[Rfam]
RNA: DnaX ribosomal frameshifting element
Organism: Erwinia sorbitola
RNA sequence: AUCAGGGGGCGAGUAAGCCAAAAAAGACUGAGCCGGCAGCGCAGGGUGCGCGGCCGGCGAGU
Numbered sequence: 001a002u003c004a005g006g007g008g009g010c011g012a013g014u015a016a017g018c019c020a021a022a023a024a025a026g027a028c029u030g031a032g033c034c035g036g037c038a039g040c041g042c043a044g045g046g047u048g049c050g051c052g053g054c055c056g057g058c059g060a061g062u
Stems, first nucleotide, its partner, number of pairs: 032058006039051004